Rfam assigns this 87-nucleotide RNA sequence from Hespellia stercorisuis to the family "c-di-GMP-I riboswitch aptamer". Taxonomically the source falls in Hespellia stercorisuis (Bacteria, Bacillota, Clostridia, Lachnospiraceae). The family's consensus secondary structure is taken from published work. A search with the family's covariance model found it, with a score of 68 bits.
RNA sequence: AGAUAAAAAGGGCAAACCGGUAGAAAUGCCGGGACGCAAAAACAUAGGACCUAAGCUGAUAACACAGUAUGGUAGCCGAUUGCAUGG
Numbered sequence: 001a002g003a004u005a006a007a008a009a010g011g012g013c014a015a016a017c018c019g020g021u022a023g024a025a026a027u028g029c030c031g032g033g034a035c036g037c038a039a040a041a042a043c044a045u046a047g048g049a050c051c052u053a054a055g056c057u058g059a060u061a062a063c064a065c066a067g068u069a070u071g072g073u074a075g076c077c078g079a080u081u082g083c084a085u086g087g
Stems, first nucleotide, its partner, number of pairs: 012037002017032006040081002043078001047077002049073003056067003